Small nucleolar RNA snoR97: a 107-nucleotide RNA from Cephalotus follicularis. The match comes from Rfam's covariance-model search (87 bits). The family has 7 seed sequences and 862 matches in Rfam 15.1. It is annotated as an H/ACA-box small nucleolar RNA. For this family Rfam cites "Experimental RNomics: identification of 140 candidates for small non-messenger RNAs in the plant Arabidopsis thaliana" (Marker et al., Curr Biol, 2002).

[Rfam]
RNA sequence: CAGUUUCACUUGGUGUUGGGUCUGAAAAAACUCAAACAUUGGGUGUUAUCAUCAGCUUCUUCUCCUUUAUAUCCACGAGAAUGGAGUCAAAUAACAGCACAACAUUU
Numbered sequence: 001c002a003g004u005u006u007c008a009c010u011u012g013g014u015g016u017u018g019g020g021u022c023u024g025a026a027a028a029a030a031c032u033c034a035a036a037c038a039u040u041g042g043g044u045g046u047u048a049u050c051a052u053c054a055g056c057u058u059c060u061u062c063u064c065c066u067u068u069a070u071a072u073c074c075a076c077g078a079g080a081a082u083g084g085a086g087u088c089a090a091a092u093a094a095c096a097g098c099a100c101a102a103c104a105u106u107u
Base pairs, nucleotide, nucleotide: 043100044099045098046097047096055087056086057085058084059083061080062079063078064077